[Rfam]
nrdJ RNA: a 77-nucleotide sequence from Streptomyces albireticuli.
RNA sequence: ACCUGCCCGGCGCGCCUCGCGCGCCGGGUGAAAGACAGACAUCCGCGCCACGGAAGAAUUGGGCGCAUUAGGGCGUU
Numbered sequence: 001a002c003c004u005g006c007c008c009g010g011c012g013c014g015c016c017u018c019g020c021g022c023g024c025c026g027g028g029u030g031a032a033a034g035a036c037a038g039a040c041a042u043c044c045g046c047g048c049c050a051c052g053g054a055a056g057a058a059u060u061g062g063g064c065g066c067a068u069u070a071g072g073g074c075g076u077u
Base pairs, nucleotide, nucleotide: 004030005029006028007027008026009025010024011023012022013021014020015019045066046065047064048063049062050060
By type it is a small RNA. It scores 59 bits against the family's covariance model. Taxonomically the source falls in Streptomyces (Bacteria, Actinomycetota, Actinomycetes, Kitasatosporales). The family's consensus secondary structure is taken from published work.